[Rfam]
Small nucleolar RNA Z278: a 115-nucleotide RNA sequence from Eragrostis curvula.
RNA sequence: GUCAAUGAUGAUUCUGUCUGCAAAAUGGACGUGCUGUGUACCCAAGUCCCUGCUUCAGGGAGAACCUACUUGGAGAAACAGCAUCUAAUAUGACAAUAAUUCAGACGUCUGAGAU
Numbered sequence: 001g002u003c004a005a006u007g008a009u010g011a012u013u014c015u016g017u018c019u020g021c022a023a024a025a026u027g028g029a030c031g032u033g034c035u036g037u038g039u040a041c042c043c044a045a046g047u048c049c050c051u052g053c054u055u056c057a058g059g060g061a062g063a064a065c066c067u068a069c070u071u072g073g074a075g076a077a078a079c080a081g082c083a084u085c086u087a088a089u090a091u092g093a094c095a096a097u098a099a100u101u102c103a104g105a106c107g108u109c110u111g112a113g114a115u
Base pairs, nucleotide, nucleotide: 001115002114003113048060049059050058051057052056

From the family's description: snoZ278 is a C/D box small nucleolar RNA. Its methylation guide targets have not been reported. A reference for the family is Chen et al. (2003), "The high diversity of snoRNAs in plants: identification and comparative study of 120 snoRNA genes from Oryza sativa", Nucleic Acids Res. It scores 38 bits against the family's covariance model.